[Rfam]
RNA sequence: CGGGGAUUGUAGGCAGACCCCCCGCUUCCCAAGACGCCCCGACGUCCAAGCUCUGC
Numbered sequence: 001c002g003g004g005g006a007u008u009g010u011a012g013g014c015a016g017a018c019c020c021c022c023c024g025c026u027u028c029c030c031a032a033g034a035c036g037c038c039c040c041g042a043c044g045u046c047c048a049a050g051c052u053c054u055g056c
Stems, first nucleotide, its partner, number of pairs: 001024005013056005033046004
Shown here is a 56-nucleotide RNA sequence, a member of the family "chrB-b RNA". Rfam's curators put it in the seed alignment. The family's RNA type in Rfam is cis-regulatory element.